[Rfam]
RNA sequence: UUAUUAAAGCAGAAGUGAUCCGCUUCUCACCUUACAAAGCUAAGAGCUACUAGGGUUUAAACAAUGAUUUAAAAGCGGACAGCUCAUGCUGCCCGCUUUUAUUAUUUAAU
Number, nucleotide and partner (000 for none) at each position: 001u000002u000003a000004u000005u000006a000007a000008a000009g000010c000011a027012g026013a025014a024015g023016u022017g000018a000019u000020c000021c000022g016023c015024u014025u013026c012027u011028c000029a056030c055031c054032u000033u000034a000035c000036a051037a000038a000039g047040c046041u000042a000043a000044g000045a000046g040047c039048u000049a000050c000051u036052a000053g000054g031055g030056u029057u000058u000059a000060a000061a000062c000063a000064a000065u000066g000067a000068u000069u000070u000071a000072a000073a000074a097075g096076c095077g094078g093079a000080c091081a090082g089083c088084u000085c000086a000087u000088g083089c082090u081091g080092c000093c078094c077095g076096c075097u074098u000099u000100u000101a000102u000103u000104a000105u000106u000107u000108a000109a000110u000
RNA: Ribosomal protein L20 leader